[Rfam]
RNA: c-di-GMP-I riboswitch aptamer
Organism: Bdellovibrio sp. NC01
RNA sequence: UUUGCCUCAAGGCAAACCACGGGAAAUCGUGGGGCGCAAAACUAGAGGGGCUUACCGCAAGGUUGCCAGCCAGUUGCCAAA
Numbered sequence: 001u002u003u004g005c006c007u008c009a010a011g012g013c014a015a016a017c018c019a020c021g022g023g024a025a026a027u028c029g030u031g032g033g034g035c036g037c038a039a040a041a042c043u044a045g046a047g048g049g050g051c052u053u054a055c056c057g058c059a060a061g062g063u064u065g066c067c068a069g070c071c072a073g074u075u076g077c078c079a080a081a
Base pairs, nucleotide, nucleotide: 012037013036017032018031019030020029021028022027040075041074042073043072047071048070049067050066051065054063055062056061
Dot-bracket structure: ...........((...((((((....))))))...))..((((...(((((..(((....))).)))..))))))......